[Rfam]
RNA sequence: UGAGUAGAGUAAAUGGUCGCGGCUGGCUGUCCGAAAGGUGCCAGACGAGGAAAGUCCGGGCUUCACAGGGCAGGAUGCCGGAUAACGUCCGGCGGAGGCGACUCCAGAGACAGUGCAACAGAAAUGAACCGCCGGCGUGCGCACCCGCAGAGGAUGCGCAUGUCUGGUAAGGGUGGAAGGGCAGUGUAAGAGACUACCGCCCGUCCGGUAACGGACGGGGCACAUGUAAACCUCAUCCGAAGCAAGACCGAAGAGAAGCAUAUGGCGGCCCGUCAGCUUCAGGUAGGUCGCUCGAACCUGGCGGCAACGCCAGGUCUGGAUAGAUGACCAUUCACGACAUAACCCGGCUUACCGCUCUGCUCACACA
Numbered sequence: 001u002g003a004g005u006a007g008a009g010u011a012a013a014u015g016g017u018c019g020c021g022g023c024u025g026g027c028u029g030u031c032c033g034a035a036a037g038g039u040g041c042c043a044g045a046c047g048a049g050g051a052a053a054g055u056c057c058g059g060g061c062u063u064c065a066c067a068g069g070g071c072a073g074g075a076u077g078c079c080g081g082a083u084a085a086c087g088u089c090c091g092g093c094g095g096a097g098g099c100g101a102c103u104c105c106a107g108a109g110a111c112a113g114u115g116c117a118a119c120a121g122a123a124a125u126g127a128a129c130c131g132c133c134g135g136c137g138u139g140c141g142c143a144c145c146c147g148c149a150g151a152g153g154a155u156g157c158g159c160a161u162g163u164c165u166g167g168u169a170a171g172g173g174u175g176g177a178a179g180g181g182c183a184g185u186g187u188a189a190g191a192g193a194c195u196a197c198c199g200c201c202c203g204u205c206c207g208g209u210a211a212c213g214g215a216c217g218g219g220g221c222a223c224a225u226g227u228a229a230a231c232c233u234c235a236u237c238c239g240a241a242g243c244a245a246g247a248c249c250g251a252a253g254a255g256a257a258g259c260a261u262a263u264g265g266c267g268g269c270c271c272g273u274c275a276g277c278u279u280c281a282g283g284u285a286g287g288u289c290g291c292u293c294g295a296a297c298c299u300g301g302c303g304g305c306a307a308c309g310c311c312a313g314g315u316c317u318g319g320a321u322a323g324a325u326g327a328c329c330a331u332u333c334a335c336g337a338c339a340u341a342a343c344c345c346g347g348c349u350u351a352c353c354g355c356u357c358u359g360c361u362c363a364c365a366c367a
Base pairs, nucleotide, nucleotide: 001363002362003361004360005359006358007357008356009355010354012332013331014330015329016328017327018326020047021046023044024043025042026041027040052350053349054348056347057346058345059344060343061242062241063240064239068271069270070269071268073238074237075236076235077234078092079091080090081089082088093107094105095104096103097102108233109232113231114230115227116226117225129172130171131168132167133166134165135164136162137161138160139159140158141157142156143155180198181197183195184194185193199221200219201218202217203216204215205214206213207212246289247288248287249286255280256279257278258277259276264274265273266272296315297314298313299312300311301310302309303308

The record is a 367-nucleotide sequence from Marvinbryantia formatexigens, which matches "Bacterial RNase P class A" in Rfam. The family's RNA type in Rfam is ribozyme.